[Rfam]
RNA sequence: GCUGGUGCGAUGAUUAUAAAAAAAUUCCUCGUUCUGAAUGCUAUGGAAAUUGGCAUGAUAGACUCCUACACCCAUAGAAUAUGAGCACCA
Numbered sequence: 001g002c003u004g005g006u007g008c009g010a011u012g013a014u015u016a017u018a019a020a021a022a023a024a025u026u027c028c029u030c031g032u033u034c035u036g037a038a039u040g041c042u043a044u045g046g047a048a049a050u051u052g053g054c055a056u057g058a059u060a061g062a063c064u065c066c067u068a069c070a071c072c073c074a075u076a077g078a079a080u081a082u083g084a085g086c087a088c089c090a
Stems, first nucleotide, its partner, number of pairs: 003090002006087002
RNA: Small nucleolar RNA snoR8a